[Rfam]
RNA sequence: GGCAAUAAACGGGCGGUGUAAUAAGCUCUUCGGACCCGGGGGCGGUACCCGGCGCCUCCACCAUGAACCGACGGUUGCAAGCGCGCUUGCCAGGCCGGUUGAUGAUGGGGGCGAAAUAGGAUCGACGGGAGUGUAAAGAUCGACUUUUUGCCCGGCAUGAUACCACCGUUAUCGGGUCAAACUUGUAGUUGCAAACGACAACUAUGCAGAAGCUCGUCUCGCCGCCUAA
Numbered sequence: 001g002g003c004a005a006u007a008a009a010c011g012g013g014c015g016g017u018g019u020a021a022u023a024a025g026c027u028c029u030u031c032g033g034a035c036c037c038g039g040g041g042g043c044g045g046u047a048c049c050c051g052g053c054g055c056c057u058c059c060a061c062c063a064u065g066a067a068c069c070g071a072c073g074g075u076u077g078c079a080a081g082c083g084c085g086c087u088u089g090c091c092a093g094g095c096c097g098g099u100u101g102a103u104g105a106u107g108g109g110g111g112c113g114a115a116a117u118a119g120g121a122u123c124g125a126c127g128g129g130a131g132u133g134u135a136a137a138g139a140u141c142g143a144c145u146u147u148u149u150g151c152c153c154g155g156c157a158u159g160a161u162a163c164c165a166c167c168g169u170u171a172u173c174g175g176g177u178c179a180a181a182c183u184u185g186u187a188g189u190u191g192c193a194a195a196c197g198a199c200a201a202c203u204a205u206g207c208a209g210a211a212g213c214u215c216g217u218c219u220c221g222c223c224g225c226c227u228a229a
Base pairs, nucleotide, nucleotide: 001152002151003150004149005148014142015141016140017139026131027130028129030128031127032126036052037051038050039049040048053113054112055111056110057109058108059107153168154167155166